[Rfam]
RNA sequence: GGGUGGCUUCCGUGCCUGCAGAUGUCUGUGAAUUCCUCAAGGCUGAGACCCUGCAGCCAAAGAAGCUACCC
Dot-bracket structure: ((((((((((..((.((((((..((((..(..((....))..)..)))).)))))).))..))))))))))
Numbered sequence: 001g002g003g004u005g006g007c008u009u010c011c012g013u014g015c016c017u018g019c020a021g022a023u024g025u026c027u028g029u030g031a032a033u034u035c036c037u038c039a040a041g042g043c044u045g046a047g048a049c050c051c052u053g054c055a056g057c058c059a060a061a062g063a064a065g066c067u068a069c070c071c
Stems, first nucleotide, its partner, number of pairs: 001071010013059002016056006024049004030043001033040002
The family of this 71-nucleotide RNA sequence from Bos taurus is "mir-2331 microRNA precursor family". It is one of the family's seed sequences. Rfam 15.1 lists 11 matches to the family in 11 species. Rfam links the family to the GO terms RISC complex and miRNA-mediated post-transcriptional gene silencing.